[Rfam]
Annotation:
A member of the RNA family "Plastid-ccsA-ndhD-1 3UTR RNA" from Triosteum pinnatifidum, 53 nucleotides long. Rfam describes the family as follows. Plastid-ccsA-ndhD-1 is a non-coding RNA (ncRNA) recognised in plastids. It was found in the three prime untranslated region (3UTR) of ccsA and ndhD genes, its 3UTR location suggests a role in transcript maturation. The family's consensus secondary structure was predicted with LocARNA. The organism belongs to Triosteum, within Eukaryota. By type it is a cis-regulatory element.

RNA sequence: UUUGUGAGAACCCUGUGAAUCACUAUGCUACUUGAUUCACAUGGUUCUCACAA
Numbered sequence: 001u002u003u004g005u006g007a008g009a010a011c012c013c014u015g016u017g018a019a020u021c022a023c024u025a026u027g028c029u030a031c032u033u034g035a036u037u038c039a040c041a042u043g044g045u046u047c048u049c050a051c052a053a
Stems, first nucleotide, its partner, number of pairs: 004051009014041009